Rfam assigns this 174-nucleotide sequence from Clostridium oryzae to the family "Group II catalytic intron D1-D4-3".
Pairs were carried over by alignment from the consensus structure.
The source organism's lineage runs through Bacteria, Bacillota, Clostridia, Clostridiaceae and Clostridium.
Group II introns are found in rRNA, tRNA and mRNA of organelles in fungi, plants and protists, and also in mRNA in bacteria.
It scores 133 bits against the family's covariance model.
RNA sequence: UCCUUUGUGAAGAGGAAUCUGAAGGAAGCAAUAGGCAAAGUCUUGGUUUGAGGAAUACGAAUCACAUAUAAGGCUAGUCUAGAGAAGAUGAGUUUGCAUUACAAAGCAAAGUCCAACACUAUCCGAAUUUCUAGAGAGUAGAUGUGACAGAUAUAUGAGAUGAAGGUUGACGUU
Numbered sequence: 001u002c003c004u005u006u007g008u009g010a011a012g013a014g015g016a017a018u019c020u021g022a023a024g025g026a027a028g029c030a031a032u033a034g035g036c037a038a039a040g041u042c043u044u045g046g047u048u049u050g051a052g053g054a055a056u057a058c059g060a061a062u063c064a065c066a067u068a069u070a071a072g073g074c075u076a077g078u079c080u081a082g083a084g085a086a087g088a089u090g091a092g093u094u095u096g097c098a099u100u101a102c103a104a105a106g107c108a109a110a111g112u113c114c115a116a117c118a119c120u121a122u123c124c125g126a127a128u129u130u131c132u133a134g135a136g137a138g139u140a141g142a143u144g145u146g147a148c149a150g151a152u153a154u155a156u157g158a159g160a161u162g163a164a165g166g167u168u169g170a171c172g173u174u
Stems, first nucleotide, its partner, number of pairs: 001016006028174001032170001035167002040161006046152005062147006073139003078135007087113003092107004